[Rfam]
RNA sequence: ACGCACAAGAAGAAGCACCCGCUUCUCACCUUUCGGCAACGGCUGACUGGUUUGCGAUAAUCGAUUGUUAUCGAACAUUUCGUAUGAAAUGAUGAGAACGGUUAUGGAAUGCGGGUUCGCGUGAACCCGCAUUUUUUUUAUUUU
Number, nucleotide and partner (000 for none) at each position: 001a000002c000003g000004c000005a000006c000007a000008a000009g000010a000011a026012g025013a024014a023015g022016c021017a000018c000019c000020c000021g016022c015023u014024u013025c012026u011027c000028a051029c050030c049031u000032u000033u046034c045035g044036g043037c042038a000039a000040c000041g000042g037043c036044u035045g034046a033047c000048u000049g030050g029051u028052u000053u000054g000055c000056g000057a000058u000059a000060a000061u000062c000063g000064a000065u000066u000067g000068u000069u000070a000071u000072c000073g000074a000075a000076c000077a000078u000079u000080u000081c000082g000083u000084a000085u000086g000087a000088a000089a000090u000091g000092a000093u000094g000095a000096g000097a000098a000099c000100g000101g000102u000103u000104a000105u000106g000107g000108a000109a000110u131111g130112c129113g128114g127115g126116u125117u124118c123119g000120c000121g000122u000123g118124a117125a116126c115127c114128c113129g112130c111131a110132u000133u000134u000135u000136u000137u000138u000139u000140a000141u000142u000143u000144u000
Source information: This 144-nucleotide RNA sequence from Paenibacillus radicis belongs to the Rfam family "Ribosomal protein L20 leader". Taxonomically the source falls in Paenibacillus (Bacteria, Bacillota, Bacilli, Caryophanales). Rfam classes the family as a cis-regulatory leader. Rfam describes the family as follows. This family is a putative r-protein leader autoregulatory structure found in B. subtilis and other low-GC Gram-positive bacteria. It is located in the 5' untranslated regions of mRNAs encoding initiation factor 3 followed by ribosomal proteins L35 and L20 (infC-rpmI-rplT). A Rho-independent transcription terminator structure that is probably involved in regulation is included at the 3' end.